[Rfam]
Nucleotides: 072
Base pairs, nucleotide, nucleotide: 001071002070003069004068005067006066007065010024011023012022013021026042027041028040029039030038048064049063050062051061052060
Number, partner (000 for none) and nucleotide at each position: 001071g002070g003069a004068c005067g006066g007065u008000u009000a010024g011023c012022u013021c014000a015000g016000c017000g018000g019000u020000a021013g022012a023011g024010c025000a026042u027041c028040g029039c030038c031000u032000u033000c034000a035000c036000a037000c038030g039029g040028c041027g042026g043000g044000g045000g046000u047000c048064g049063g050062g051061g052060g053000u054000u055000c056000g057000a058000a059000a060052c061051c062050c063049u064048c065007a066006c067005c068004g069003u070002c071001c072000a
About this RNA: This 72-nucleotide RNA from Solimonas terrae belongs to the Rfam family "tRNA". Its family is annotated with triplet codon-amino acid adaptor activity in the Gene Ontology. A search with the family's covariance model found it, with a score of 65 bits. By type it is a transfer RNA. Lineage of the source: Bacteria > Pseudomonadota > Gammaproteobacteria > Nevskiales > Solimonas.